The record is a 166-nucleotide part of an RNA from Mucor saturninus, which matches "Eukaryotic small subunit ribosomal RNA" in Rfam. Lineage of the source: Eukaryota > Mucoromycotina > Mucoromycetes > Mucoraceae > Mucor. Pairs were carried over by alignment from the consensus structure, which is taken from published work.
RNA sequence: CCGCCCGUCGCUACUACCGAUUGAAUGGUUACAGCAAGAAUAUGGGAUUGUUGAGAGCUAGUUGGCAACAACCGGCUUUCGAUGAGAACUAGGUCAAGCUUUGCUAUUUAGAGGAAGUAAAAGUCGUAACAAGGUUUCCGUAGGUGAACCUGCGGAAGGAUCAUUA
Numbered sequence: 001c002c003g004c005c006c007g008u009c010g011c012u013a014c015u016a017c018c019g020a021u022u023g024a025a026u027g028g029u030u031a032c033a034g035c036a037a038g039a040a041u042a043u044g045g046g047a048u049u050g051u052u053g054a055g056a057g058c059u060a061g062u063u064g065g066c067a068a069c070a071a072c073c074g075g076c077u078u079u080c081g082a083u084g085a086g087a088a089c090u091a092g093g094u095c096a097a098g099c100u101u102u103g104c105u106a107u108u109u110a111g112a113g114g115a116a117g118u119a120a121a122a123g124u125c126g127u128a129a130c131a132a133g134g135u136u137u138c139c140g141u142a143g144g145u146g147a148a149c150c151u152g153c154g155g156a157a158g159g160a161u162c163a164u165u166a
Stems, first nucleotide, its partner, number of pairs: 001133001003130001006126002009123001012119004017114002021110001023109007031102001033100003038095002041092001044089001048085011061072003135158010